Small nucleolar RNA Z112: a 187-nucleotide RNA from Hordeum vulgare.
The family is grouped with related families in Rfam's "SNORD49 clan".
It scores 90 bits against the family's covariance model.
Gene Ontology terms of the family: RNA processing and nucleolus.
The family has 6 seed sequences and 427 matches in Rfam 15.1.
On this family, see Liang et al., Nucleic Acids Res 2002: "A novel gene organization: intronic snoRNA gene clusters from Oryza sativa".

RNA sequence: UUUCCACUGAGCAAUUCUUAAUUUUGUGUUCUUCUUUGCUGUAGCACAGUGUAAACAGCAGCUGCAUCUUUGCUGCUGCAACUGUCUAUCCCUGUAUCAUAACCUUUGUGGUUUGUACUGGGUGGAAAUACCCAUUUGCGGCUGCUUUAUUCAGCUAUGUGUGUUUUGAAUUGGGUCUCCGAGGGAU
Numbered sequence: 001u002u003u004c005c006a007c008u009g010a011g012c013a014a015u016u017c018u019u020a021a022u023u024u025u026g027u028g029u030u031c032u033u034c035u036u037u038g039c040u041g042u043a044g045c046a047c048a049g050u051g052u053a054a055a056c057a058g059c060a061g062c063u064g065c066a067u068c069u070u071u072g073c074u075g076c077u078g079c080a081a082c083u084g085u086c087u088a089u090c091c092c093u094g095u096a097u098c099a100u101a102a103c104c105u106u107u108g109u110g111g112u113u114u115g116u117a118c119u120g121g122g123u124g125g126a127a128a129u130a131c132c133c134a135u136u137u138g139c140g141g142c143u144g145c146u147u148u149a150u151u152c153a154g155c156u157a158u159g160u161g162u163g164u165u166u167u168g169a170a171u172u173g174g175g176u177c178u179c180c181g182a183g184g185g186a187u
Base pairs, nucleotide, nucleotide: 002186003185004184005183076141077140078139079138080137081136083134084133085126086125087124088123089122090121091120095117096116098115099114101113102112103111104110